Shown here is a 58-nucleotide sequence from Trichinella spiralis, a member of the family "Selenocysteine insertion sequence 1". Lineage of the source: Eukaryota > Nematoda > Dorylaimia > Trichinellida > Trichinella.
RNA sequence: AUUCCUUUGUGACGAUAUUCCCUUAAACCAAAAUGGCGGGGAAUAUCUGAUGCGCAAU
Numbered sequence: 001a002u003u004c005c006u007u008u009g010u011g012a013c014g015a016u017a018u019u020c021c022c023u024u025a026a027a028c029c030a031a032a033a034u035g036g037c038g039g040g041g042a043a044u045a046u047c048u049g050a051u052g053c054g055c056a057a058u
Base pairs, nucleotide, nucleotide: 001058002057003056005054014047015046016045017044018043019042020041021040022039023038028036029035030034

It scores 39 bits against the family's covariance model. Rfam 15.1 lists 3,793 matches to the family in 721 species.